[Rfam]
A member of the RNA family "Small nucleolar RNA Z161/Z228" from Protea cynaroides, 101 nucleotides long. A reference for the family is Chen et al. (2003), "The high diversity of snoRNAs in plants: identification and comparative study of 120 snoRNA genes from Oryza sativa", Nucleic Acids Res. Rfam classes the family as a C/D-box small nucleolar RNA. The source organism's lineage runs through Eukaryota, Tracheophyta, Mesangiospermae, Proteaceae and Protea. The match comes from Rfam's covariance-model search (53 bits).

RNA sequence: CUCCCAAGUGAUGAGAACAAUUGGAUUCAAUUUCUCACGACGGUCAUCUGAGACACUGUUGUGUCAUUAUUGAUGCAAUAAUCCAAUGUAUCCUGAUGGCU
Dot-bracket structure: ..((.................................................(((....)))..................................))..